RNA sequence: AGAAUUGCAAUGAGGAUGAAUUUGGUUAUGGACUAGAGUUUCUGAUUUGGGUUUUUACCCAUUAGUUGAAGACUCACCCUUGGCUGUCUGAGCACCUCU
Numbered sequence: 001a002g003a004a005u006u007g008c009a010a011u012g013a014g015g016a017u018g019a020a021u022u023u024g025g026u027u028a029u030g031g032a033c034u035a036g037a038g039u040u041u042c043u044g045a046u047u048u049g050g051g052u053u054u055u056u057a058c059c060c061a062u063u064a065g066u067u068g069a070a071g072a073c074u075c076a077c078c079c080u081u082g083g084c085u086g087u088c089u090g091a092g093c094a095c096c097u098c099u
Stems, first nucleotide, its partner, number of pairs: 001099003006094003039071004046064001048061004

The family of this 99-nucleotide sequence from Carex littledalei is "Small nucleolar RNA Z157/R69/R10". Its family is annotated with RNA processing and nucleolus in the Gene Ontology. The family has 10 seed sequences and 836 matches in Rfam 15.1. For this family Rfam cites "The high diversity of snoRNAs in plants: identification and comparative study of 120 snoRNA genes from Oryza sativa" (Chen et al., Nucleic Acids Res, 2003). NCBI's taxonomy places the organism under Eukaryota, Streptophyta, Mesangiospermae, Poales, Carex subgen. Euthyceras. It is annotated as a C/D-box small nucleolar RNA. The base pairs follow the family's consensus structure, which was predicted with PFOLD. The match comes from Rfam's covariance-model search (75 bits).